[Rfam]
RNA sequence: CCGUUCUCAUUGGGGUGCGUUUUGCUGAGAAAUACCCAUAGAACCUGAUCUGAGUAAUAUCAGCGUAGGGAUUUGAGACUGCCUUUCAG
Number, nucleotide and partner (000 for none) at each position: 001c000002c000003g000004u000005u000006c077007u076008c075009a074010u000011u038012g037013g036014g035015g000016u032017g025018c024019g023020u000021u000022u000023u019024g018025c017026u000027g000028a000029g000030a000031a000032a016033u000034a000035c014036c013037c012038a011039u000040a000041g000042a000043a000044c069045c068046u067047g066048a000049u000050c063051u062052g061053a060054g000055u000056a000057a000058u000059a000060u053061c052062a051063g050064c000065g000066u047067a046068g045069g044070g000071a000072u000073u000074u009075g008076a007077g006078a000079c000080u000081g000082c000083c000084u000085u000086u000087c000088a000089g000

Shown here is an 89-nucleotide RNA sequence from Targowskia paracuniculus, a member of the family "TPP riboswitch aptamer (THI element)". The organism belongs to Targowskia, within Bacteria.